[Rfam]
RNA sequence: CAAGCAAAACGUUCUAUCGCUGCCUGAUUUAGGUUGGGCGGAGGAAAGUCCGGGCAACACAGAGCAUCCUGCUUCCUAACGGGAAGGCGCCUCGCAGCGGGCGACAGCAAGUGCCACAGAGAAUAUACCGCCUUAAUUUAUUAAGGUAAGGGUGAAAACGUGAGGUAAGAGCUCACGGCUUACAUAGGUAACUAUGUUUGCGGUAAACCUCAGGAGUUGAAAGACCAAAUAGGUCCUGAAAUGAGAGCGGCUCGCUUUUGUAUGCUGCGCAAGCAGUAUCGUCAGGACGGGUAGGUCGCUUAAGCUGGUUAGUGAUAACCGGAACAGAUUAAUGAUAGAAACUGCCGCCAGGCAGCACAGAACCCGGCUUAUAAUUUUGCCGCUGUA
Dot-bracket structure: ...((((((.((((((((.(((((((((....)))))))))....[[[.[[[[[((((........((((((((((.....)))))(((((........)))).)((...(((((............(((((((((....)))))))..)).......((((((.......))))))....((((((....))))))....)))..)))))))))))))...((((......((((((........................((((((....))))))....)))))).....)))).......(((((((....)))))))...........)))))))......................]]]]]]]].)..)))))).......
This 387-nucleotide sequence from Mucilaginibacter galii belongs to the Rfam family "Bacterial RNase P class A". The family's RNA type in Rfam is ribozyme. NCBI's taxonomy places the organism under Bacteria, Pseudomonadati, Bacteroidota, Sphingobacteriia, Mucilaginibacter. A search with the family's covariance model found it, with a score of 248 bits. Rfam describes the family as follows. Ribonuclease P (RNase P) is a ubiquitous endoribonuclease, found in archaea, bacteria and eukarya as well as chloroplasts and mitochondria.